Rfam assigns this 72-nucleotide RNA sequence from Mycobacterium leprae to the family "tRNA". The match comes from Rfam's covariance-model search (60 bits). Taxonomically the source falls in Mycobacterium leprae (Bacteria, Actinomycetota, Actinomycetes, Mycobacteriales). Its family is annotated with triplet codon-amino acid adaptor activity in the Gene Ontology.
RNA sequence: UCCGUCGUGGUGUAAUCGGCAGCACCUCUGAUUUUGGUUCAGAUAGUUCAGGUUCGAGUCCUGACGACGGAA
Dot-bracket structure: (((((((..((((........)))).(((((.......)))))....(((((.......)))))))))))).